[Rfam]
RNA: Streptomyces RNA 5676
RNA sequence: AGAUGAAAGAAACACCCCGCUCGCAGGAGACUGCGGGCGAUCCCACGGCGGCGCGUCCCCAGCCCCGUCUUGGCCGCGUCUUCGGGCGCGCUGGAGCAUCCAGCUCCGGAAUUCCUCACCGAUCGGA
Numbered sequence: 001a002g003a004u005g006a007a008a009g010a011a012a013c014a015c016c017c018c019g020c021u022c023g024c025a026g027g028a029g030a031c032u033g034c035g036g037g038c039g040a041u042c043c044c045a046c047g048g049c050g051g052c053g054c055g056u057c058c059c060c061a062g063c064c065c066c067g068u069c070u071u072g073g074c075c076g077c078g079u080c081u082u083c084g085g086g087c088g089c090g091c092u093g094g095a096g097c098a099u100c101c102a103g104c105u106c107c108g109g110a111a112u113u114c115c116u117c118a119c120c121g122a123u124c125g126g127a
Base pairs, nucleotide, nucleotide: 004118005117006116009114010113018039019038020037021036022035023034024033025032026031043073044072045071047069049067050066051065053063054062076089077088078087079086091109092108093107094106095105096104097103119126120125